[Rfam]
RNA sequence: UACUACCUUCGGGGUCAGGUGGAAUUCCUAACCGGCGGUAAAGCCCGCGAGUCCGUAAAAAUUUACGGAUAGAUCCGGUGAAAUUCCGGAGCCGACAGUUAAAGUCUGGAUGGGAGAAGGUAUUA
Numbered sequence: 001u002a003c004u005a006c007c008u009u010c011g012g013g014g015u016c017a018g019g020u021g022g023a024a025u026u027c028c029u030a031a032c033c034g035g036c037g038g039u040a041a042a043g044c045c046c047g048c049g050a051g052u053c054c055g056u057a058a059a060a061a062u063u064u065a066c067g068g069a070u071a072g073a074u075c076c077g078g079u080g081a082a083a084u085u086c087c088g089g090a091g092c093c094g095a096c097a098g099u100u101a102a103a104g105u106c107u108g109g110a111u112g113g114g115a116g117a118a119g120g121u122a123u124u125a
Stems, first nucleotide, its partner, number of pairs: 004122007017029003031105002033094002035048004043092002051070003074090005096108003

FMN riboswitch aptamer (RFN element): a 125-nucleotide sequence from Carboxydothermus hydrogenoformans.